Small nucleolar RNA snoR99: a 102-nucleotide RNA from Rosa chinensis. It is annotated as an H/ACA-box small nucleolar RNA. The match comes from Rfam's covariance-model search (44 bits). Rfam 15.1 lists 733 matches to the family in 222 species. Pairs were carried over by alignment from the consensus structure, which was predicted with WAR.

[Rfam]
RNA sequence: GUGCAAUUGAUGUUAUACUUGUCCCAACAAGAAAUUCCCAUUCUAUUAACUUUGUCAGCUGGGCUUCUUUACUUGCAGUUGAUUUUCAUGAAUGGAAUAUCG
Dot-bracket structure: .....................................(((((...........((((((((..............)))))))).......))))).......